[Rfam]
RNA sequence: GGGCAAGAUAGGUGGAGUUAGCUAACCAGCAAGCUGGUCACCAAACUUCACAUGGCUUAUUCGCACCUUCGGUGCUCAACGGGUAUCUUGCUUUUUGAGAUC
Numbered sequence: 001g002g003g004c005a006a007g008a009u010a011g012g013u014g015g016a017g018u019u020a021g022c023u024a025a026c027c028a029g030c031a032a033g034c035u036g037g038u039c040a041c042c043a044a045a046c047u048u049c050a051c052a053u054g055g056c057u058u059a060u061u062c063g064c065a066c067c068u069u070c071g072g073u074g075c076u077c078a079a080c081g082g083g084u085a086u087c088u089u090g091c092u093u094u095u096u097g098a099g100a101u102c
Base pairs, nucleotide, nucleotide: 001093002092003091004090005089006088007087008086009085012051013050014049015048016047017046019044021042025038026037027036028035029034054084056082057081063075064074065073066072067071
RNA: traJ-II RNA
Organism: Legionella israelensis